This 80-nucleotide sequence from Chanos chanos belongs to the Rfam family "mir-199 microRNA precursor family". The source organism's lineage runs through Eukaryota, Deuterostomia, Chordata, Actinopterygii and Chanos. About the family: This family consists of the microRNA (miRNA) precursor mir-199 which appears to be specific to humans. Animal miRNAs are transcribed as ~70nt precursors and subsequently processed by the Dicer enzyme to give a ~22nt product. In this case the mature sequence comes from the 3' arm of the precursor. A search with the family's covariance model found it, with a score of 96 bits.
RNA sequence: AUCCCGCCUCCCCAGUGUUCAGACUACCUGUUCAGGAAGUAAAGGAUGUACAGUAGUCUGCACAUUGGUUAGGCUGGGUG
Dot-bracket structure: ...........(((((((.(((((((.((((.((............)).))))))))))).)))))))............